A member of the RNA family "Small nucleolar RNA Z152/R70/R12/" from Juglans regia, 107 nucleotides long. On this family, see Barneche et al., J Mol Biol 2001: "Identification of 66 box C/D snoRNAs in Arabidopsis thaliana: extensive gene duplications generated multiple isoforms predicting new ribosomal RNA 2'-O-methylation sites". The source organism's lineage runs through Eukaryota, Embryophyta, eudicotyledons, rosids and Juglans. Gene Ontology terms of the family: nucleolus and RNA processing.
RNA sequence: UAUGCUAUGAUGAGCUUAAACACUGGACGUGUUUUGGGGCAGAGGACGAGAUUGAUUUCUCGCCGUGAGCCCAUUUUAUAAAACGACUUCUCCUUCCACUGAGCACA
Dot-bracket structure: (.(((.................................................................................................))).)
Numbered sequence: 001u002a003u004g005c006u007a008u009g010a011u012g013a014g015c016u017u018a019a020a021c022a023c024u025g026g027a028c029g030u031g032u033u034u035u036g037g038g039g040c041a042g043a044g045g046a047c048g049a050g051a052u053u054g055a056u057u058u059c060u061c062g063c064c065g066u067g068a069g070c071c072c073a074u075u076u077u078a079u080a081a082a083a084c085g086a087c088u089u090c091u092c093c094u095u096c097c098a099c100u101g102a103g104c105a106c107a
Stems, first nucleotide, its partner, number of pairs: 001107001003105003